Small nucleolar RNA SNORD72: an 82-nucleotide RNA from Oryzias javanicus. The match comes from Rfam's covariance-model search (53 bits). By type it is a C/D-box small nucleolar RNA. Rfam 15.1 lists 726 matches to the family in 499 species.

[Rfam]
RNA sequence: AGCUCACCAAUGAUGGCAAUCAAAUGUCUGAACCAAUGAAUCCAUAGUGAUUUAACUAUUUUUAUGAACUCUGAGGUGAGCU
Numbered sequence: 001a002g003c004u005c006a007c008c009a010a011u012g013a014u015g016g017c018a019a020u021c022a023a024a025u026g027u028c029u030g031a032a033c034c035a036a037u038g039a040a041u042c043c044a045u046a047g048u049g050a051u052u053u054a055a056c057u058a059u060u061u062u063u064a065u066g067a068a069c070u071c072u073g074a075g076g077u078g079a080g081c082u
Stems, first nucleotide, its partner, number of pairs: 002081007
The base pairs follow the family's consensus structure.